[Rfam]
RNA sequence: CAGCGGGAGAUAGACCCGCCAAGGUAAGAGCCAGGAACCUUGUAGCUUGGAUGGCAGGGAGGAGGGAAACUGAAUCUCUGAAGCCCAUCGACAACGUUAUCUUCGGGAUGACGGCGAGUCACCGGGCCGCAGCGAAA
Numbered sequence: 001c002a003g004c005g006g007g008a009g010a011u012a013g014a015c016c017c018g019c020c021a022a023g024g025u026a027a028g029a030g031c032c033a034g035g036a037a038c039c040u041u042g043u044a045g046c047u048u049g050g051a052u053g054g055c056a057g058g059g060a061g062g063a064g065g066g067a068a069a070c071u072g073a074a075u076c077u078c079u080g081a082a083g084c085c086c087a088u089c090g091a092c093a094a095c096g097u098u099a100u101c102u103u104c105g106g107g108a109u110g111a112c113g114g115c116g117a118g119u120c121a122c123c124g125g126g127c128c129g130c131a132g133c134g135a136a137a
Stems, first nucleotide, its partner, number of pairs: 020042005050089005055080006064071002096112006114130003
Group II catalytic intron D1-D4-4: a 137-nucleotide RNA sequence from Candidatus Entotheonella gemina.
Rfam 15.1 lists 840 matches to the family in 506 species.
The match comes from Rfam's covariance-model search (119 bits).
Rfam describes the family as follows. Group II introns are found in rRNA, tRNA and mRNA of organelles in fungi, plants and protists, and also in mRNA in bacteria.
Its family is annotated with Group II intron splicing in the Gene Ontology.
Pairs were carried over by alignment from the consensus structure.
The literature on the family includes a 2001 paper in EMBO J by Chu et al., "Control of branch-site choice by a group II intron".